[Rfam]
RNA sequence: UUUUAGAGGUGUAGGCGUAAAAGAACACCUAUAAAUAACUCUAUGAGAAGCAAAACUCGUAUAAAAGCGUA
Numbered sequence: 001u002u003u004u005a006g007a008g009g010u011g012u013a014g015g016c017g018u019a020a021a022a023g024a025a026c027a028c029c030u031a032u033a034a035a036u037a038a039c040u041c042u043a044u045g046a047g048a049a050g051c052a053a054a055a056c057u058c059g060u061a062u063a064a065a066a067g068c069g070u071a
Stems, first nucleotide, its partner, number of pairs: 001017001003015002009028004044059004
GP20-b RNA: a 71-nucleotide RNA sequence from Zhenhengia yiwuensis. The family's RNA type in Rfam is cis-regulatory element. Lineage of the source: Bacteria > Bacillota > Clostridia > Lachnospiraceae > Zhenhengia. The match comes from Rfam's covariance-model search (41 bits).